RNA sequence: CUCUGGAGAGCGUUGCCUUUUAGUGCAACCACCAACGGGGCAAGCUUCUUAGCGUGUUUGUGUAGAAGUGAUACUUUCAGGUGCAAGGACAGAG
Numbered sequence: 001c002u003c004u005g006g007a008g009a010g011c012g013u014u015g016c017c018u019u020u021u022a023g024u025g026c027a028a029c030c031a032c033c034a035a036c037g038g039g040g041c042a043a044g045c046u047u048c049u050u051a052g053c054g055u056g057u058u059u060g061u062g063u064a065g066a067a068g069u070g071a072u073a074c075u076u077u078c079a080g081g082u083g084c085a086a087g088g089a090c091a092g093a094g
Stems, first nucleotide, its partner, number of pairs: 001094005012029004031082003035077001038076003044069006
Shown here is a 94-nucleotide RNA from Caryophanon tenue, a member of the family "Glycine riboswitch aptamer".